[Rfam]
U12 minor spliceosomal RNA: a 149-nucleotide RNA from Salvator merianae.
RNA sequence: AUGCCUUAAACUAAUGAGUAAGGAAAAUAACGAUUUGGGUUGAUGCCUGGGCCCUCAGUGCUAAUGUGAGAGGAAUUUUUGGACAGGUACAGGUCAUCCCUAUGGUGAUCAGCCUACUUAGCGGGAAGCCUGGGUAUUUUUUUUAUUAA
Dot-bracket structure: ...(((((..........)))))........(.((((((......)))))).)((((.........)))).................(...(((.(...((..(((..((.((.......)).))..)))..))........).))).)
Numbered sequence: 001a002u003g004c005c006u007u008a009a010a011c012u013a014a015u016g017a018g019u020a021a022g023g024a025a026a027a028u029a030a031c032g033a034u035u036u037g038g039g040u041u042g043a044u045g046c047c048u049g050g051g052c053c054c055u056c057a058g059u060g061c062u063a064a065u066g067u068g069a070g071a072g073g074a075a076u077u078u079u080u081g082g083a084c085a086g087g088u089a090c091a092g093g094u095c096a097u098c099c100c101u102a103u104g105g106u107g108a109u110c111a112g113c114c115u116a117c118u119u120a121g122c123g124g125g126a127a128g129c130c131u132g133g134g135u136a137u138u139u140u141u142u143u144u145a146u147u148a149a
Stems, first nucleotide, its partner, number of pairs: 004023005032053001034051006054070004088149001092147003096143001100134002104130003109125002112122002
Gene Ontology terms of the family: mRNA branch site recognition, pre-mRNA branch point binding and U12 snRNP. The base pairs follow the family's consensus structure. Clan: U2 clan. By type it is a spliceosomal small nuclear RNA.